[Rfam]
RNA sequence: CAAAAAAACAUGAUUGAGUGCAGCACUGGUGAAUUCAUCUCAGAGAGUAACAUAAUUCAUCAAUGCUGCACUCAAUGAUGUUUAUU
Numbered sequence: 001c002a003a004a005a006a007a008a009c010a011u012g013a014u015u016g017a018g019u020g021c022a023g024c025a026c027u028g029g030u031g032a033a034u035u036c037a038u039c040u041c042a043g044a045g046a047g048u049a050a051c052a053u054a055a056u057u058c059a060u061c062a063a064u065g066c067u068g069c070a071c072u073c074a075a076u077g078a079u080g081u082u083u084a085u086u
Base pairs, nucleotide, nucleotide: 006083007082008081009080010079011078013076014075015074016073017072018071019070020069021068022067023066024065025064027062028061030059031058032057033056034055035054
Record summary:
The record is an 86-nucleotide RNA sequence from Hibiscus trionum, which matches "MIR397 microRNA precursor family" in Rfam. Lineage of the source: Eukaryota > Streptophyta > Gunneridae > Malvaceae > Hibiscus. The literature on the family includes a 2009 paper in BMC Genomics by Mica et al., "High throughput approaches reveal splicing of primary microRNA transcripts and tissue specific expression of mature microRNAs in Vitis vinifera". Gene Ontology terms of the family: miRNA-mediated post-transcriptional gene silencing and RISC complex. A search with the family's covariance model found it, with a score of 59 bits.